[Rfam]
Background:
The record is a 172-nucleotide RNA from Neobittarella massiliensis, which matches "glmS glucosamine-6-phosphate activated ribozyme aptamer" in Rfam. A reference for the family is Winkler et al. (2004), "Control of gene expression by a natural metabolite-responsive ribozyme", Nature.
Nucleotides: 172
Base pairs, nucleotide, nucleotide: 020032021031022030023029024028041073042072043071044070045069050061051060052059053058074111075110076109077108078107079106080105081104082103116161117160118159119158120157121156130145131144132143133142134141135140
Number, partner (000 for none) and nucleotide at each position: 001000g002000u003000g004000g005000g006000a007000a008000g009000u010000a011000a012000a013000g014000c015000g016000c017000c018000a019000g020032a021031g022030c023029c024028c025000a026000u027000g028024g029023g030022g031021c032020u033000g034000a035000c036000g037000a038000g039000g040000c041073g042072g043071a044070g045069a046000g047000u048000g049000a050061u051060c052059g053058a054000a055000a056000a057000u058053u059052c060051g061050g062000c063000g064000g065000a066000u067000g068000c069045u070044c071043u072042c073041c074111c075110g076109g077108u078107c079106a080105g081104a082103u083000a084000g085000u086000c087000g088000c089000c090000g091000c092000u093000c094000a095000g096000g097000c098000g099000a100000c101000a102000g103082g104081u105080c106079u107078g108077g109076u110075c111074g112000u113000u114000a115000c116161c117160c118159g119158c120157g121156c122000u123000a124000c125000a126000a127000a128000a129000c130145c131144c132143g133142g134141c135140a136000g137000c138000a139000a140135u141134g142133c143132c144131g145130g146000u147000c148000c149000a150000c151000a152000a153000a154000a155000a156121g157120c158119g159118c160117g161116g162000c163000a164000g165000a166000u167000c168000a169000u170000u171000u172000u

Rfam classes the family as a riboswitch.